A member of the RNA family "Small nucleolar RNA SNORD42" from Vulpes vulpes, 65 nucleotides long. The match comes from Rfam's covariance-model search (53 bits). Rfam describes the family as follows. snoRNA U42 is found in intron 3 of the ribosomal protein L23a (RPL23a) gene in humans and is also present in mice. Rfam 15.1 lists 848 matches to the family in 572 species.
[Rfam]
RNA sequence: GUGCAAAUGAUGGAAAAGUCCCUAUUUAGGAAAGAAUGACAUGAACAAAGGAACUGCUGAUGUGC
Number, nucleotide and partner (000 for none) at each position: 001g065002u064003g063004c062005a061006a000007a000008u000009g000010a000011u000012g000013g000014a000015a000016a000017a000018g000019u000020c000021c000022c000023u000024a000025u000026u000027u000028a000029g000030g000031a000032a000033a000034g000035a000036a000037u000038g000039a000040c000041a000042u000043g000044a000045a000046c000047a000048a000049a000050g000051g000052a000053a000054c000055u000056g000057c000058u000059g000060a000061u005062g004063u003064g002065c001